[Rfam]
The family of this 57-nucleotide RNA sequence from Stegnosperma cubense is "Plastid-rps18 3UTR RNA".
On this family, see Richter et al., Plant Commun 2023: "Retrograde signaling in plants: A critical review focusing on the GUN pathway and beyond".
Rfam describes the family as follows. Plastid rps18 is a non-coding RNA (ncRNA) present in plastids. It was identified as a short stem-loop motif in the 3 prime untranslate region (3UTR) of rps18 gene.
RNA sequence: UGCAAGUAUUUUACGAUUAAGAAGCAACUGUUUCUUGUACAAAUCAUGUAUAAAUUU
Numbered sequence: 001u002g003c004a005a006g007u008a009u010u011u012u013a014c015g016a017u018u019a020a021g022a023a024g025c026a027a028c029u030g031u032u033u034c035u036u037g038u039a040c041a042a043a044u045c046a047u048g049u050a051u052a053a054a055u056u057u
Base pairs, nucleotide, nucleotide: 018037019036020035021034022033023032024031025030